A member of the RNA family "Ribosomal protein L20 leader" from Streptococcus iniae, 124 nucleotides long.
RNA sequence: UGAGAAAAGCAGAAGUGAGAACUUCUCGCCUUGCGACUACGGUUGUCUGGCCCACAUGUUAAAAUCCUUUCUAGGAAAUUAUGUGUACGGGCUUGAGAAAUCAAGUUCGUUUUGUUUUUCUCUA
Numbered sequence: 001u002g003a004g005a006a007a008a009g010c011a012g013a014a015g016u017g018a019g020a021a022c023u024u025c026u027c028g029c030c031u032u033g034c035g036a037c038u039a040c041g042g043u044u045g046u047c048u049g050g051c052c053c054a055c056a057u058g059u060u061a062a063a064a065u066c067c068u069u070u071c072u073a074g075g076a077a078a079u080u081a082u083g084u085g086u087a088c089g090g091g092c093u094u095g096a097g098a099a100a101u102c103a104a105g106u107u108c109g110u111u112u113u114g115u116u117u118u119u120c121u122c123u124a
Stems, first nucleotide, its partner, number of pairs: 011026006028051003033046005087110009

Rfam links the family to the GO term regulation of gene expression. The family's consensus secondary structure was predicted with CMfinder. The source organism's lineage runs through Bacteria, Bacillati, Bacilli, Lactobacillales and Streptococcus. The family's RNA type in Rfam is cis-regulatory leader. Rfam's curators write: This family is a putative r-protein leader autoregulatory structure found in B. subtilis and other low-GC Gram-positive bacteria.